[Rfam]
RNA sequence: GGAUGUGGCUCUGGAGAAACCCGGCAGAGCCGGGUACCGAAGGUGCAAGGCGGAAUACCGCUGAAUCUCUCAGGUAAAAGGACAGAGCGGACGUU
Numbered sequence: 001g002g003a004u005g006u007g008g009c010u011c012u013g014g015a016g017a018a019a020c021c022c023g024g025c026a027g028a029g030c031c032g033g034g035u036a037c038c039g040a041a042g043g044u045g046c047a048a049g050g051c052g053g054a055a056u057a058c059c060g061c062u063g064a065a066u067c068u069c070u071c072a073g074g075u076a077a078a079a080g081g082a083c084a085g086a087g088c089g090g091a092c093g094u095u
Stems, first nucleotide, its partner, number of pairs: 006090001008088006020034004036075003039071002043069001045067001049062002